A member of the RNA family "c-di-AMP riboswitch aptamer (ydaO/yuaA leader)" from Anaerosalibacter massiliensis, 136 nucleotides long. The literature on the family includes a 2004 paper in Proc Natl Acad Sci U S A by Barrick et al., "New RNA motifs suggest an expanded scope for riboswitches in bacterial genetic control". The source organism's lineage runs through Bacteria, Bacillota, Tissierellia, Tissierellales and Anaerosalibacter. A search with the family's covariance model found it, with a score of 93 bits.

[Rfam]
RNA sequence: ACAAUUUUAACGCUUAAUCCUUUUAUUGUGAAAGGAACGGAGGAAAUCAAAGUAACUGGGGUGAAUCCUUUUUAAAGGUAGGGCUACCCUGGCCCGAAUCCGUCAGCUAACUUCGUAGGCGUGGAAGGGGAAAAUG
Dot-bracket structure: ..........((((...((((((.......))))))((((((.....((.......))(((.....((((....))))..((((.......))))...))).........)))))).))))...............
Numbered sequence: 001a002c003a004a005u006u007u008u009a010a011c012g013c014u015u016a017a018u019c020c021u022u023u024u025a026u027u028g029u030g031a032a033a034g035g036a037a038c039g040g041a042g043g044a045a046a047u048c049a050a051a052g053u054a055a056c057u058g059g060g061g062u063g064a065a066u067c068c069u070u071u072u073u074a075a076a077g078g079u080a081g082g083g084c085u086a087c088c089c090u091g092g093c094c095c096g097a098a099u100c101c102g103u104c105a106g107c108u109a110a111c112u113u114c115g116u117a118g119g120c121g122u123g124g125a126a127g128g129g130g131a132a133a134a135u136g
Stems, first nucleotide, its partner, number of pairs: 011121004018036006037116006048058002059101003067078004081095004